Notes: SAM riboswitch aptamer (S box leader): a 105-nucleotide RNA sequence from Dialister sp. CAG:588. The base pairs follow the family's consensus structure, which is taken from published work.
RNA sequence: GACUCAUCAAGAGUAGCAGAGGGAACGGCCCAAUGAAGCUACAGCAACCAUCUAUUAUAAGAUAAGGUGCUAAUUCCAACAGUUUAUAUGCUGUUAAGAUGAGGG
Numbered sequence: 001g002a003c004u005c006a007u008c009a010a011g012a013g014u015a016g017c018a019g020a021g022g023g024a025a026c027g028g029c030c031c032a033a034u035g036a037a038g039c040u041a042c043a044g045c046a047a048c049c050a051u052c053u054a055u056u057a058u059a060a061g062a063u064a065a066g067g068u069g070c071u072a073a074u075u076c077c078a079a080c081a082g083u084u085u086a087u088a089u090g091c092u093g094u095u096a097a098g099a100u101g102a103g104g105g
Stems, first nucleotide, its partner, number of pairs: 003103006013042005021031003027077002043071004048067002050063004075097001080093004

The source organism's lineage runs through Bacteria, Bacillati, Negativicutes, Veillonellales and Dialister.